[Rfam]
RNA: Bacterial RNase P class A
RNA sequence: CGAGUCGGCCGGGUGAUCGCGGCGCAAGUCGAGGAAAGUCCGGACUCCUCAGAGCAGGGUGGUGGGUAACGCCCACCCGGGGUGACCCGCGGGAAAGUGCCACAGAGAACAGACCGCCCCGCAAGGGGUAAGGGUGAAACGGCGGUGUAAGAGACCACCGCACUCCAGGUGACUGGAGUGGCUCGGUAAACCCCACCCGGAGCAAGACCAAGAAGGGCGCGAUCCUCGGAUCGGGCCUGCGGACGCCGUUAUCAGCGCUGCUCGCGCGAGGCGUCCGGGUAGGUCGCACGCCGGAAACGGCGAAGGCGGUUGGCAACAGCCGUCGCAGAUGGAUGAUCACCGCCCGGCAACGGGCACAGAAUCCGGCUUACAGGCCGGCUCGUCCC
Numbered sequence: 001c002g003a004g005u006c007g008g009c010c011g012g013g014u015g016a017u018c019g020c021g022g023c024g025c026a027a028g029u030c031g032a033g034g035a036a037a038g039u040c041c042g043g044a045c046u047c048c049u050c051a052g053a054g055c056a057g058g059g060u061g062g063u064g065g066g067u068a069a070c071g072c073c074c075a076c077c078c079g080g081g082g083u084g085a086c087c088c089g090c091g092g093g094a095a096a097g098u099g100c101c102a103c104a105g106a107g108a109a110c111a112g113a114c115c116g117c118c119c120c121g122c123a124a125g126g127g128g129u130a131a132g133g134g135u136g137a138a139a140c141g142g143c144g145g146u147g148u149a150a151g152a153g154a155c156c157a158c159c160g161c162a163c164u165c166c167a168g169g170u171g172a173c174u175g176g177a178g179u180g181g182c183u184c185g186g187u188a189a190a191c192c193c194c195a196c197c198c199g200g201a202g203c204a205a206g207a208c209c210a211a212g213a214a215g216g217g218c219g220c221g222a223u224c225c226u227c228g229g230a231u232c233g234g235g236c237c238u239g240c241g242g243a244c245g246c247c248g249u250u251a252u253c254a255g256c257g258c259u260g261c262u263c264g265c266g267c268g269a270g271g272c273g274u275c276c277g278g279g280u281a282g283g284u285c286g287c288a289c290g291c292c293g294g295a296a297a298c299g300g301c302g303a304a305g306g307c308g309g310u311u312g313g314c315a316a317c318a319g320c321c322g323u324c325g326c327a328g329a330u331g332g333a334u335g336a337u338c339a340c341c342g343c344c345c346g347g348c349a350a351c352g353g354g355c356a357c358a359g360a361a362u363c364c365g366g367c368u369u370a371c372a373g374g375c376c377g378g379c380u381c382g383u384c385c386c
Base pairs, nucleotide, nucleotide: 001382002381003380004379005378006377007376008375009374010373011371012341013340014339015338016337017336018335020031021030022029023028036369037368038367040366041365042364043363044362045202046201047200048199052263053262054261055260057198058197059196060195061194062076063075064074065073066072077091078089079088080087081086092193093192097191098190099187100186101185114133115132116129117128118127119126120125141159142158144156145155146154160182161180162179163178164177165176166175167174168173206285207284208283209282215276216275217274218273219272220271255267256266257265258264305324306323307322308321309320310319311318312317